[Rfam]
RNA: mir-196 microRNA precursor family
Organism: Petromyzon marinus
RNA sequence: CACGUGGUGUAGGUAGUAUCAUGUUGUUGGGUAUUUACAACAUCCUCGACAACGCGUCACUGCCUUCACCACGCC
Numbered sequence: 001c002a003c004g005u006g007g008u009g010u011a012g013g014u015a016g017u018a019u020c021a022u023g024u025u026g027u028u029g030g031g032u033a034u035u036u037a038c039a040a041c042a043u044c045c046u047c048g049a050c051a052a053c054g055c056g057u058c059a060c061u062g063c064c065u066u067c068a069c070c071a072c073g074c075c
Stems, first nucleotide, its partner, number of pairs: 003073007011065007022054010